[Rfam]
RNA sequence: AAUAAUACUCAUCGGGGAAGGUGAGAACCUUCGACAAGGUUCGCGCCGAGCGCAGCGAGACAACAACGCAUCGCGUUGGCCCGAAGGGCGAGGAACGAAGUGACGAGUCAUCCUUCCCCCACCACCA
Numbered sequence: 001a002a003u004a005a006u007a008c009u010c011a012u013c014g015g016g017g018a019a020g021g022u023g024a025g026a027a028c029c030u031u032c033g034a035c036a037a038g039g040u041u042c043g044c045g046c047c048g049a050g051c052g053c054a055g056c057g058a059g060a061c062a063a064c065a066a067c068g069c070a071u072c073g074c075g076u077u078g079g080c081c082c083g084a085a086g087g088g089c090g091a092g093g094a095a096c097g098a099a100g101u102g103a104c105g106a107g108u109c110a111u112c113c114u115u116c117c118c119c120c121a122c123c124a125c126c127a
Stems, first nucleotide, its partner, number of pairs: 015118007022110001032090002035087001040085004047057002064078006
Description
Rfam assigns this 127-nucleotide RNA from Yersinia mollaretii to the family "RtT RNA". Pairs were carried over by alignment from the consensus structure, which is taken from published work. The source organism's lineage runs through Bacteria, Pseudomonadota, Gammaproteobacteria, Yersinia and Yersinia mollaretii. From the family's description: This family represents a bacterial cis-regulatory element known as RtT RNA. The exact function of RtT is unknown although it is thought that it may be involved in changing the cellular response in relation to amino acid starvation. It is one of the family's seed sequences.